Source information: The record is a 51-nucleotide RNA sequence from Pterocles burchelli, which matches "Prion pseudoknot" in Rfam. The organism belongs to Pterocles, within Eukaryota. This family represents a predicted pseudoknot structure found in prion protein mRNA. It has been suggested that the family has a possible effect in prion protein translation. The family's consensus secondary structure is taken from published work. It scores 40 bits against the family's covariance model.

[Rfam]
RNA sequence: CCAGGGGGGUGGCUUGGGGACACCCCAGCUCGGUACCAUGGUGGUGGCUGG
Dot-bracket structure: (((.((.............................)).)))..........
Numbered sequence: 001c002c003a004g005g006g007g008g009g010u011g012g013c014u015u016g017g018g019g020a021c022a023c024c025c026c027a028g029c030u031c032g033g034u035a036c037c038a039u040g041g042u043g044g045u046g047g048c049u050g051g
Stems, first nucleotide, its partner, number of pairs: 001041003005037002
The family has 148 seed sequences and 421 matches in Rfam 15.1.